[Rfam]
RNA sequence: GCGGGCGUAGCCAAGUGGUUAAGGCAGUGGAUUGUGGUUCCACCAUUCGGGGGUUCAAGUCCCCUCGUUCGCC
Numbered sequence: 001g002c003g004g005g006c007g008u009a010g011c012c013a014a015g016u017g018g019u020u021a022a023g024g025c026a027g028u029g030g031a032u033u034g035u036g037g038u039u040c041c042a043c044c045a046u047u048c049g050g051g052g053g054u055u056c057a058a059g060u061c062c063c064c065u066c067g068u069u070c071g072c073c
Base pairs, nucleotide, nucleotide: 001072002071003070004069005068006067007066010025011024012023027043028042029041030040031039049065050064051063052062053061